[Rfam]
RNA sequence: UUAACUCAUAUUUGUAUGAAACGGGAUCGUUUGCGUAAGUUUGCCGCUAGGGCCGCUGUUCCAACUGCAUACAAAAUUGGGUUA
Numbered sequence: 001u002u003a004a005c006u007c008a009u010a011u012u013u014g015u016a017u018g019a020a021a022c023g024g025g026a027u028c029g030u031u032u033g034c035g036u037a038a039g040u041u042u043g044c045c046g047c048u049a050g051g052g053c054c055g056c057u058g059u060u061c062c063a064a065c066u067g068c069a070u071a072c073a074a075a076a077u078u079g080g081g082u083u084a
Stems, first nucleotide, its partner, number of pairs: 008078001011075006018068001020066001024062003028058002034052001036050001039047002
Overview: A member of the RNA family "mir-2807 microRNA precursor family" from Bombyx mori, 84 nucleotides long. Pairs were carried over by alignment from the consensus structure, which was predicted with RNAalifold.